[Rfam]
RNA: mir-3473 microRNA precursor family
RNA sequence: ACCACUGAGCCAUUUCUCCAGCCCCUAAUUUUUUUUUUAAACUUUUUAAAAUGUUUUUUGUUGGGGCUGGAGAGAUGGCUCAGUGGU
Numbered sequence: 001a002c003c004a005c006u007g008a009g010c011c012a013u014u015u016c017u018c019c020a021g022c023c024c025c026u027a028a029u030u031u032u033u034u035u036u037u038u039a040a041a042c043u044u045u046u047u048a049a050a051a052u053g054u055u056u057u058u059u060g061u062u063g064g065g066g067c068u069g070g071a072g073a074g075a076u077g078g079c080u081c082a083g084u085g086g087u
Stems, first nucleotide, its partner, number of pairs: 002086023